[Rfam]
RNA sequence: CUAGAUCCCAGUGUCCCUAUGAUGUCAUCCCAGUGCUUGACACUGGGAACCAGAAAAGUUUGCUUGUGAACAAGCAAACUAGCACAGAAAAUGAUUACAACAUUUUCGAUGAGAUUAUAUGGAAAACUGGAUCCCAGUGUCUGGGCACUGGGAUGACAGUGCGCCGUAGAAA
Numbered sequence: 001c002u003a004g005a006u007c008c009c010a011g012u013g014u015c016c017c018u019a020u021g022a023u024g025u026c027a028u029c030c031c032a033g034u035g036c037u038u039g040a041c042a043c044u045g046g047g048a049a050c051c052a053g054a055a056a057a058g059u060u061u062g063c064u065u066g067u068g069a070a071c072a073a074g075c076a077a078a079c080u081a082g083c084a085c086a087g088a089a090a091a092u093g094a095u096u097a098c099a100a101c102a103u104u105u106u107c108g109a110u111g112a113g114a115u116u117a118u119a120u121g122g123a124a125a126a127c128u129g130g131a132u133c134c135c136a137g138u139g140u141c142u143g144g145g146c147a148c149u150g151g152g153a154u155g156a157c158a159g160u161g162c163g164c165c166g167u168a169g170a171a172a
Stems, first nucleotide, its partner, number of pairs: 011167003015163001023158016039141010050130004
A member of the RNA family "Wolbachia sRNA 46" from Nephila pilipes, 172 nucleotides long. The source organism's lineage runs through Eukaryota, Entelegynae, Araneoidea, Nephilidae and Nephila. The literature on the family includes a 2014 paper in Proc Natl Acad Sci U S A by Mayoral et al., "Wolbachia small noncoding RNAs and their role in cross-kingdom communications".